[Rfam]
RNA sequence: UAAAUGAAUAGGCAAAACAAGGGAAACCUUGCGACGCAAAGCUAUAGGGGUUAAGGCAUAUGCUAUACCAGCCAGUUGCUAAA
Numbered sequence: 001u002a003a004a005u006g007a008a009u010a011g012g013c014a015a016a017a018c019a020a021g022g023g024a025a026a027c028c029u030u031g032c033g034a035c036g037c038a039a040a041g042c043u044a045u046a047g048g049g050g051u052u053a054a055g056g057c058a059u060a061u062g063c064u065a066u067a068c069c070a071g072c073c074a075g076u077u078g079c080u081a082a083a
Base pairs, nucleotide, nucleotide: 012037013036018031019030020029021028022027040077041076042075043074047073048072049069050068051067056063057062